Record summary:
Rfam assigns this 100-nucleotide sequence from Chenopodium quinoa to the family "mir-393 microRNA precursor family". The match comes from Rfam's covariance-model search (89 bits). Rfam links the family to the GO terms miRNA-mediated post-transcriptional gene silencing and RISC complex. On this family, see Kruszka et al., J Plant Physiol 2012: "Role of microRNAs and other sRNAs of plants in their changing environments".
[Rfam]
RNA sequence: GAAGGAGGAAUCCAAAGGGAUCGCAUUGAUCCCAACUUACAAUUCAAUUUUUAAUUUUAUGGUUUCGUUUGGAUCAUGCAAUCUCUUUGGAUUUAUCCUU
Numbered sequence: 001g002a003a004g005g006a007g008g009a010a011u012c013c014a015a016a017g018g019g020a021u022c023g024c025a026u027u028g029a030u031c032c033c034a035a036c037u038u039a040c041a042a043u044u045c046a047a048u049u050u051u052u053a054a055u056u057u058u059a060u061g062g063u064u065u066c067g068u069u070u071g072g073a074u075c076a077u078g079c080a081a082u083c084u085c086u087u088u089g090g091a092u093u094u095a096u097c098c099u100u
Stems, first nucleotide, its partner, number of pairs: 002100005008094014023079004028075005